mir-221 microRNA precursor family: an 82-nucleotide sequence from Liparis tanakae. The literature on the family includes a 2008 paper in J Virol by Yao et al., "MicroRNA profile of Marek's disease virus-transformed T-cell line MSB-1: predominance of virus-encoded microRNAs". The family has 72 seed sequences and 1,797 matches in Rfam 15.1. Rfam links the family to the GO terms miRNA-mediated post-transcriptional gene silencing and RISC complex.

[Rfam]
RNA sequence: UACGUCCUGGACCUGGCAUUCAGUGUAGGAUUCUGUGUGUCAGUGUACAGCUACAUUGUCUGCUGGGUUUCAGGCCUUCACU
Number, nucleotide and partner (000 for none) at each position: 001u000002a000003c000004g000005u000006c000007c000008u000009g000010g000011a000012c000013c066014u065015g064016g063017c062018a061019u000020u000021c058022a057023g056024u055025g054026u053027a052028g051029g000030a000031u000032u000033c050034u049035g048036u047037g000038u000039g000040u000041c000042a000043g000044u000045g000046u000047a036048c035049a034050g033051c028052u027053a026054c025055a024056u023057u022058g021059u000060c000061u018062g017063c016064u015065g014066g013067g000068u000069u000070u000071c000072a000073g000074g000075c000076c000077u000078u000079c000080a000081c000082u000